[Rfam]
RNA sequence: AAAAAGGGUCGGUUGGCUAUGUAUGCCACAUCCAUCUUCGAAUGAUGGGUGCUGUAUGGCUAUCAAGACAUAUGGCCGACAUAAUUUGUGGGACAUUAUAGGGUUGGCUCGCUCGGCCGACCCUCCU
Dot-bracket structure: .......(((((.((((.......))))((((((((.......))))))))(((((((..........))))))))))))...................((((((((.((....))))))))))...
Numbered sequence: 001a002a003a004a005a006g007g008g009u010c011g012g013u014u015g016g017c018u019a020u021g022u023a024u025g026c027c028a029c030a031u032c033c034a035u036c037u038u039c040g041a042a043u044g045a046u047g048g049g050u051g052c053u054g055u056a057u058g059g060c061u062a063u064c065a066a067g068a069c070a071u072a073u074g075g076c077c078g079a080c081a082u083a084a085u086u087u088g089u090g091g092g093a094c095a096u097u098a099u100a101g102g103g104u105u106g107g108c109u110c111g112c113u114c115g116g117c118c119g120a121c122c123c124u125c126c127u
Stems, first nucleotide, its partner, number of pairs: 008080005014028004029051008052075007100124008109116002

Background: U11 spliceosomal RNA: a 127-nucleotide RNA sequence from Rhynchospora breviuscula. On this family, see Montzka and Steitz, Proc Natl Acad Sci U S A 1988: "Additional low-abundance human small nuclear ribonucleoproteins: U11, U12, etc". It scores 81 bits against the family's covariance model. Clan: U1 clan.